This 31-nucleotide RNA from Etheostoma spectabile belongs to the Rfam family "Iron response element II". The organism belongs to Oligocephalus, within Eukaryota. A reference for the family is Koeller et al. (1989), "A cytosolic protein binds to structural elements within the iron regulatory region of the transferrin receptor mRNA", Proc Natl Acad Sci U S A. A search with the family's covariance model found it, with a score of 34 bits. Rfam describes the family as follows. IRE, TFRC, SLC40A1, SDHB, SLC11A2, CDC42BPA, ACO2, ALAS2_H.SAPIENS, CDC14A, EPAS1, ALAS2, qoxD, Hao1, NDUFS1, transferrin, Aconitate.

RNA sequence: UUAUUAUCAGUGGCAGUGCCCACUAUAAAGU
Numbered sequence: 001u002u003a004u005u006a007u008c009a010g011u012g013g014c015a016g017u018g019c020c021c022a023c024u025a026u027a028a029a030g031u
Base pairs, nucleotide, nucleotide: 002030004028005027006026007025009024010023011022012021013020014018